Notes
A member of the RNA family "Small nucleolar RNA ACA64" from Neogobius melanostomus, 130 nucleotides long. Lineage of the source: Eukaryota > Osteoglossocephalai > Gobiiformes > Neogobiini > Neogobius.
RNA sequence: UCAUACUGAAAAUGGCUUCAGAUCUAAUAGUGGUGUGAGGUCAGAUAAAUGAGCCUAAAGCAUUGUUGUACGCUAAGCUUAUUGCCUGCUCCUCGAUUGGCGGAGCGAUAAAACCCGUGUGCAAACAUUU
Number, nucleotide and partner (000 for none) at each position: 001u000002c000003a000004u000005a000006c051007u000008g000009a000010a046011a000012a000013u043014g042015g041016c040017u000018u000019c000020a000021g000022a034023u033024c032025u000026a000027a000028u000029a000030g000031u000032g024033g023034u022035g000036u000037g000038a000039g000040g016041u015042c014043a013044g000045a000046u010047a000048a000049a000050u000051g006052a000053g000054c000055c000056u000057a000058a000059a000060g000061c000062a000063u000064u000065g000066u000067u123068g000069u121070a120071c119072g118073c117074u000075a000076a000077g000078c000079u111080u110081a109082u108083u107084g000085c000086c000087u102088g101089c100090u000091c000092c000093u000094c000095g000096a000097u000098u000099g000100g089101c088102g087103g000104a000105g000106c000107g083108a082109u081110a080111a079112a000113a000114c000115c000116c000117g073118u072119g071120u070121g069122c000123a067124a000125a000126c000127a000128u000129u000130u000

A search with the family's covariance model found it, with a score of 54 bits.